[Rfam]
RNA sequence: AAAGAAUUCCCGGAGAGGUAACUCCGGGAAGAAAGAUUAAGUGGUAGGAAUCAACCAGCAUGUUGCAAU
Numbered sequence: 001a002a003a004g005a006a007u008u009c010c011c012g013g014a015g016a017g018g019u020a021a022c023u024c025c026g027g028g029a030a031g032a033a034a035g036a037u038u039a040a041g042u043g044g045u046a047g048g049a050a051u052c053a054a055c056c057a058g059c060a061u062g063u064u065g066c067a068a069u
Base pairs, nucleotide, nucleotide: 007030008029009028010027011026012025013024014023015022052065053064054063055062
Rfam assigns this 69-nucleotide RNA sequence from Oryza glumipatula to the family "Plastid-rpl20 3UTR RNA". For this family Rfam cites "Retrograde signaling in plants: A critical review focusing on the GUN pathway and beyond" (Richter et al., Plant Commun, 2023). The family has 270 seed sequences and 587 matches in Rfam 15.1.